[Rfam]
Nucleotides: 080
Base pairs, nucleotide, nucleotide: 001078002077004075005074007072008071009070010069013066014065015064016063017062018061019060023056024055025054027052028051029050030049031048
Number, partner (000 for none) and nucleotide at each position: 001078u002077a003000u004075g005074g006000g007072g008071a009070g010069g011000u012000u013066g014065g015064c016063g017062g018061c019060a020000u021000c022000a023056c024055u025054g026000u027052u028051a029050c030049u031048g032000a033000g034000g035000u036000a037000a038000u039000g040000g041000c042000u043000g044000c045000a046000c047000u048031c049030a050029g051028u052027a053000c054025c055024a056023g057000a058000c059000u060019u061018g062017u063016c064015g065014c066013c067000c068000u069010c070009c071008u072007c073000c074005c075004c076000c077002u078001a079000c080000a